[Rfam]
Nucleotides: 328
Stems, first nucleotide, its partner, number of pairs: 001108003005102007013093002018090002025086004030081004035074002037070003042067004046062003116171002118168003122139004127135002140162001147158003201270003207264002210261006223251003228247002293328002297323001300320002302316005
Number, partner (000 for none) and nucleotide at each position: 001108g002107g003106a004000u005102g006101u007100g008099a009098g010097g011096g012000c013093g014092a015000u016000c017000u018090g019089g020000c021000c022000g023000c024000a025086a026085c027084a028083u029000a030081u031080g032079u033078c034000a035074c036073c037070c038069c039068a040000u041000u042067g043066a044065u045064c046062g047061c048060c049000g050000g051000g052000g053000u054000u055000g056000a057000u058000u059000c060048g061047g062046c063000u064045g065044a066043u067042c068039u069038g070037g071000c072000u073036g074035g075000c076000u077000a078033g079032g080031c081030g082000g083028g084027u085026g086025u087000c088000c089019c090018c091000u092014u093013c094000c095000u096011c097010c098009c099008u100007c101006a102005c103000c104000g105000c106003u107002c108001c109000a110000c111000g112000u113000g114000u115000g116171u117170c118168c119167c120166u121000c122139c123138u124137g125136a126000a127135g128134c129000u130000g131000a132000g133000u134128g135127c136125u137124c138123g139122g140162u141000c142000a143000a144000a145000g146000a147158g148157g149156a150000u151000g152000a153000c154000c155000u156149u157148c158147c159000c160000c161000a162140a163000u164000a165000c166120a167119g168118g169000u170117g171116g172000u173000a174000c175000c176000a177000u178000u179000c180000a181000g182000u183000g184000g185000u186000c187000g188000c189000g190000g191000g192000u193000a194000u195000a196000c197000u198000g199000u200000a201270g202269c203268u204000g205000c206000g207264u208263u209000c210261c211260c212259c213258u214257g215256c216000u217000a218000g219000a220000u221000c222000c223251u224250c225249c226000a227000a228247a229246c230000a231000a232000g233000c234000u235000c236000a237000a238000g239000u240000c241000c242000a243000g244000c245000a246229g247228u248000a249225g250224g251223a252000a253000a254000a255000c256215g257214c258213a259212g260211g261210g262000u263208a264207g265000u266000c267000a268203a269202g270201c271000u272000u273000c274000c275000a276000g277000u278000a279000c280000u281000g282000c283000a284000g285000a286000c287000a288000c289000a290000u291000c292000c293328a294327a295000g296000u297323g298000a299000a300320g301319c302316g303315c304314u305313g306312c307000a308000c309000g310000g311000g312306g313305c314304a315303g316302u317000c318000u319301g320300c321000c322000a323297u324000u325000c326000g327294u328293u
The record is a 328-nucleotide sequence from Amazona collaria, which matches "7SK RNA" in Rfam.
The match comes from Rfam's covariance-model search (291 bits).
The family is grouped with related families in Rfam's "7SK clan".
Pairs were carried over by alignment from the consensus structure, which is taken from published work.
It is annotated as a non-coding RNA gene.